[Rfam]
RNA sequence: AACAAACGUUUUACCGGUUUGUAAAUUGGAAUUCUCGAAUUCGCCAGUCGCCUUCUUCGUAUCAAGGAUCUGGAAUUUGAACGGUAUCUUUAUCAUUUUAAUUUCUACUUUUCGUACCAGUC
Dot-bracket structure: .((((((.........))))))......((((......)))).((((...((((.........))))..)))).........(((((..........................)))))....

A member of the RNA family "5'UTR enhancer element" from Dianthovirus trifolii, 122 nucleotides long.
By type it is a cis-regulatory element.
It is one of the family's seed sequences.